[Rfam]
RNA sequence: UUUAUGAGAACCAUUUGAAUCAAGUAGUAGAGCGAUUCAAAUGGUUCUCGAC
Numbered sequence: 001u002u003u004a005u006g007a008g009a010a011c012c013a014u015u016u017g018a019a020u021c022a023a024g025u026a027g028u029a030g031a032g033c034g035a036u037u038c039a040a041a042u043g044g045u046u047c048u049c050g051a052c
Stems, first nucleotide, its partner, number of pairs: 005050017
RNA: Plastid-ccsA-ndhD-2 3UTR RNA
Organism: Fagopyrum esculentum